This 83-nucleotide sequence from Morus notabilis belongs to the Rfam family "Small nucleolar RNA SNORD25".

[Rfam]
RNA sequence: GUUAACGGUGAUGAGCCUUUAACCUGUAACCAUUUGUGGAUUUGAUCACAGAUGUUUAAGAACAUCAAAGAGACUGAGUUUGA
Numbered sequence: 001g002u003u004a005a006c007g008g009u010g011a012u013g014a015g016c017c018u019u020u021a022a023c024c025u026g027u028a029a030c031c032a033u034u035u036g037u038g039g040a041u042u043u044g045a046u047c048a049c050a051g052a053u054g055u056u057u058a059a060g061a062a063c064a065u066c067a068a069a070g071a072g073a074c075u076g077a078g079u080u081u082g083a
Base pairs, nucleotide, nucleotide: 002082004080005079006078
Pairs were carried over by alignment from the consensus structure, which was predicted with PFOLD. By type it is a C/D-box small nucleolar RNA. The literature on the family includes a 2001 paper in Nucleic Acids Res by Qu et al., "Identification of 10 novel snoRNA gene clusters from Arabidopsis thaliana". Its Rfam clan is "SNORD25 clan".